Rfam assigns this 150-nucleotide RNA sequence from Phytoamicus setariae to the family "speF leader". Rfam links the family to the GO term regulation of gene expression. On this family, see Corbino et al., Genome Biol 2005: "Evidence for a second class of S-adenosylmethionine riboswitches and other regulatory RNA motifs in alpha-proteobacteria". The family's consensus secondary structure was predicted with RNAalifold. This family is a putative regulatory RNA structure that is found upstream of the speF gene encoding ornithine decarboxylase in Agrobacterium tumefaciens and other alpha-proteobacteria. NCBI's taxonomy places the organism under Bacteria, Pseudomonadota, Alphaproteobacteria, Rhizobiaceae, Phytoamicus.
RNA sequence: UGCCGGCUUUCCAACAGCCGGGGUUACUGAAGAGGCACACCUUCAUUGCCGGAAGUGCGGUUGGGACAUCCCUCCAAUCCAAGGCAGACAAUCUGAACAUAUGCCGUUUCGCGGCGUUUGUUCUACAGCCAUGUGGCAUUUCGUAAUGAA
Numbered sequence: 001u002g003c004c005g006g007c008u009u010u011c012c013a014a015c016a017g018c019c020g021g022g023g024u025u026a027c028u029g030a031a032g033a034g035g036c037a038c039a040c041c042u043u044c045a046u047u048g049c050c051g052g053a054a055g056u057g058c059g060g061u062u063g064g065g066a067c068a069u070c071c072c073u074c075c076a077a078u079c080c081a082a083g084g085c086a087g088a089c090a091a092u093c094u095g096a097a098c099a100u101a102u103g104c105c106g107u108u109u110c111g112c113g114g115c116g117u118u119u120g121u122u123c124u125a126c127a128g129c130c131a132u133g134u135g136g137c138a139u140u141u142c143g144u145a146a147u148g149a150a
Stems, first nucleotide, its partner, number of pairs: 001023001003021006034050004083094002102138005